[Rfam]
RNA sequence: AUACGCGAUGCGGGAGAGCCCAGCAGCCGCCGAAACUGUCGACUGCCGGGCACCGAAGGAGCAAGCCUCCCUGCCAAUCUCUCAGGUCACAAGUACCGCAUCGAACUG
Number, nucleotide and partner (000 for none) at each position: 001a000002u000003a000004c000005g000006c103007g102008a101009u100010g099011c098012g097013g096014g000015a000016g000017a000018g000019c000020c050021c049022a000023g047024c000025a000026g000027c000028c000029g000030c000031c000032g000033a000034a000035a000036c000037u000038g000039u000040c000041g000042a000043c000044u000045g000046c000047c023048g000049g021050g020051c000052a087053c086054c085055g083056a082057a000058g000059g081060a080061g079062c000063a000064a000065g074066c073067c000068u000069c000070c000071c000072u000073g066074c065075c000076a000077a000078u000079c061080u060081c059082u056083c055084a000085g054086g053087u052088c000089a000090c000091a000092a000093g000094u000095a000096c013097c012098g011099c010100a009101u008102c007103g006104a000105a000106c000107u000108g000
RNA: Glycine riboswitch aptamer